[Rfam]
RNA sequence: CCCAGCGGUAGUCAGCUGUGCAGGCCCGUCCAUGCCUGAACUAGUGUUACUCUGCUGGAAGAGAAAGGUGCUGCCGUUUGUGCUCCAUCAGGUUUGGCUGUUUUAGUGAAACCUGGUGGACAGCACAGGUUAUGCCGUGCCUUCUGAGAGUGGUCUGUGCUCACAAAAUGAGGCAGGCCUAGUCUGGGGGCGAACACA
Numbered sequence: 001c002c003c004a005g006c007g008g009u010a011g012u013c014a015g016c017u018g019u020g021c022a023g024g025c026c027c028g029u030c031c032a033u034g035c036c037u038g039a040a041c042u043a044g045u046g047u048u049a050c051u052c053u054g055c056u057g058g059a060a061g062a063g064a065a066a067g068g069u070g071c072u073g074c075c076g077u078u079u080g081u082g083c084u085c086c087a088u089c090a091g092g093u094u095u096g097g098c099u100g101u102u103u104u105a106g107u108g109a110a111a112c113c114u115g116g117u118g119g120a121c122a123g124c125a126c127a128g129g130u131u132a133u134g135c136c137g138u139g140c141c142u143u144c145u146g147a148g149a150g151u152g153g154u155c156u157g158u159g160c161u162c163a164c165a166a167a168a169u170g171a172g173g174c175a176g177g178c179c180u181a182g183u184c185u186g187g188g189g190g191c192g193a194a195c196a197c198a
Stems, first nucleotide, its partner, number of pairs: 002058007011050002015045004021038005068135003073130003080126005085119006092112002094109001097107003138192007152179003156175003160172004

The record is a 198-nucleotide RNA from Labeo rohita, which matches "Small nucleolar RNA SNORA74" in Rfam. The family's consensus secondary structure was predicted with PFOLD. For this family Rfam cites "The family of box ACA small nucleolar RNAs is defined by an evolutionarily conserved secondary structure and ubiquitous sequence elements essential for RNA accumulation" (Ganot et al., Genes Dev, 1997). The family's RNA type in Rfam is H/ACA-box small nucleolar RNA. Clan: SNORA74 clan. Rfam links the family to the GO terms nucleolus and RNA processing.